Description
A member of the RNA family "mir-548 microRNA precursor family" from Colobus angolensis, 82 nucleotides long. A search with the family's covariance model found it, with a score of 91 bits. Taxonomically the source falls in Colobus angolensis (Eukaryota, Craniata, Catarrhini, Cercopithecidae). Gene Ontology terms of the family: RISC complex and miRNA-mediated post-transcriptional gene silencing. The family has 11 seed sequences and 3,009 matches in Rfam 15.1.
RNA sequence: UAUUAGGUUGGUGCAAAAGUUAUUGCGGUUUUUGCCAUUAAAAAAUAGCAAAAACUGCAAUAACUUUUGCACCAACCUAAUA
Numbered sequence: 001u002a003u004u005a006g007g008u009u010g011g012u013g014c015a016a017a018a019g020u021u022a023u024u025g026c027g028g029u030u031u032u033u034g035c036c037a038u039u040a041a042a043a044a045a046u047a048g049c050a051a052a053a054a055c056u057g058c059a060a061u062a063a064c065u066u067u068u069g070c071a072c073c074a075a076c077c078u079a080a081u082a
Stems, first nucleotide, its partner, number of pairs: 001082035037046003